RNA sequence: AAAAUCCAGCCUGAGGAAAGGUUAGCCACCACCACAGAACUGAACCCCACACCCAGCCCGGUAACGGGCUGCUGUGAAGCUGGGGGGAUGGGAUACCAGGCCACAAUCGAAAAGGUGAAGGUUAUAAGCCCCGAAAUUCUUAUGAUUCUGGAAGCCGACGUUGUCUCUGUGACGGAAGGCAGCAUUCGCACCACCGUUAGUCCAAUCCUCCGGUCUUGGAAUAUAGCAGAGAGCUCUGGGACAUUGCGAGGUGAUGUGAGUCCAGUGGGGUCUCAGACCG
Numbered sequence: 001a002a003a004a005u006c007c008a009g010c011c012u013g014a015g016g017a018a019a020g021g022u023u024a025g026c027c028a029c030c031a032c033c034a035c036a037g038a039a040c041u042g043a044a045c046c047c048c049a050c051a052c053c054c055a056g057c058c059c060g061g062u063a064a065c066g067g068g069c070u071g072c073u074g075u076g077a078a079g080c081u082g083g084g085g086g087g088a089u090g091g092g093a094u095a096c097c098a099g100g101c102c103a104c105a106a107u108c109g110a111a112a113a114g115g116u117g118a119a120g121g122u123u124a125u126a127a128g129c130c131c132c133g134a135a136a137u138u139c140u141u142a143u144g145a146u147u148c149u150g151g152a153a154g155c156c157g158a159c160g161u162u163g164u165c166u167c168u169g170u171g172a173c174g175g176a177a178g179g180c181a182g183c184a185u186u187c188g189c190a191c192c193a194c195c196g197u198u199a200g201u202c203c204a205a206u207c208c209u210c211c212g213g214u215c216u217u218g219g220a221a222u223a224u225a226g227c228a229g230a231g232a233g234c235u236c237u238g239g240g241a242c243a244u245u246g247c248g249a250g251g252u253g254a255u256g257u258g259a260g261u262c263c264a265g266u267g268g269g270g271u272c273u274c275a276g277a278c279c280g
Stems, first nucleotide, its partner, number of pairs: 012036002015033002020030003040090001045085003050076003054071007128271006148265004153261001154180003159174004185260006192253004